[Rfam]
RNA: mir-17 microRNA precursor family
RNA sequence: CAGAAUAAUGUCAAAGUGCUUACAGUGCAGGUAGUGAUAUGUGCAUCUACUGCAGUGAAGGCACUUGUAGCAUUAUGGU
Number, nucleotide and partner (000 for none) at each position: 001c000002a000003g000004a000005a076006u075007a074008a073009u000010g071011u070012c000013a000014a066015a065016g064017u063018g062019c061020u060021u059022a000023c057024a056025g000026u054027g053028c052029a000030g051031g050032u049033a048034g047035u000036g000037a000038u000039a000040u000041g000042u000043g000044c000045a000046u000047c034048u033049a032050c031051u030052g028053c027054a026055g000056u024057g023058a000059a021060g020061g019062c018063a017064c016065u015066u014067g000068u000069a000070g011071c010072a000073u008074u007075a006076u005077g000078g000079u000